[Rfam]
RNA sequence: CCUACCGAGGGGCGCUGCAGCAGGGUUUCCCUGUCAGGCUCGGGGGAGCGUAGCCGCAGGCCUAGCCUGCACACGCAUCAACGGCGCCCAUUCGCA
Dot-bracket structure: .((.((((............(((((...)))))......)))).))..................................................

Overview
Rfam assigns this 96-nucleotide RNA sequence from Pseudomonas sp. HPB0071 to the family "SAH (S-adenosyl-L-homocysteine) riboswitch aptamer". The base pairs follow the family's consensus structure, which is taken from published work. The literature on the family includes a 2008 paper in Mol Cell by Wang et al., "Riboswitches that sense S-adenosylhomocysteine and activate genes involved in coenzyme recycling". The source organism's lineage runs through Bacteria, Pseudomonadota, Pseudomonadales, Pseudomonadaceae and Pseudomonas.